[Rfam]
RNA sequence: UUACCUUCAAAAUUUAUUAAUUUAAUUUAUGUAUCUGUUCUUAUCAGUUUAAUAUCUGAUACGUCCUCUAUCCGAGGACAAUAUAUUAAAUGGAUUUUUGGAGCAGGGAGAUGGAAUAGGAGCUUGCUCCGUCCACUCCAUGCAUCGACCUGGUAUUGCAGUACUUCCAGGAACGGUGCACUCCCC
Dot-bracket structure: ......(....(....).)......................((((((........)))))).((((((.....))))))...........................((((..((....((((....)))).))..))))..((((((.(((((.............)))))..)))))).......
Overview:
The record is a 186-nucleotide sequence from Mustela putorius, which matches "U2 spliceosomal RNA" in Rfam. For this family Rfam cites "Crystal structure of a model branchpoint-U2 snRNA duplex containing bulged adenosines" (Berglund et al., RNA, 2001). It is annotated as a spliceosomal small nuclear RNA. A search with the family's covariance model found it, with a score of 137 bits.